The family of this 86-nucleotide RNA sequence from Labrus bergylta is "mir-135 microRNA precursor family".
[Rfam]
RNA sequence: UGCCCAGUGCGCUGUAUGGCUUUUUAUUCCUAUCUGACUGUACUAAUGGUUCAUAUAGGGAUGGAAGCCAUGCACGGCGCUGGGAG
Dot-bracket structure: ..((((((((..(((((((((((..((((((((.(((.............))).)))))))).)))))))))))..))))))))..
Numbered sequence: 001u002g003c004c005c006a007g008u009g010c011g012c013u014g015u016a017u018g019g020c021u022u023u024u025u026a027u028u029c030c031u032a033u034c035u036g037a038c039u040g041u042a043c044u045a046a047u048g049g050u051u052c053a054u055a056u057a058g059g060g061a062u063g064g065a066a067g068c069c070a071u072g073c074a075c076g077g078c079g080c081u082g083g084g085a086g
Stems, first nucleotide, its partner, number of pairs: 003084008013074011026062008035053003
On this family, see Kim et al., Proc Natl Acad Sci U S A 2004: "Identification of many microRNAs that copurify with polyribosomes in mammalian neurons".
The source organism's lineage runs through Eukaryota, Teleostomi, Euteleostomi, Clupeocephala and Labrus.
Rfam 15.1 lists 2,125 matches to the family in 647 species.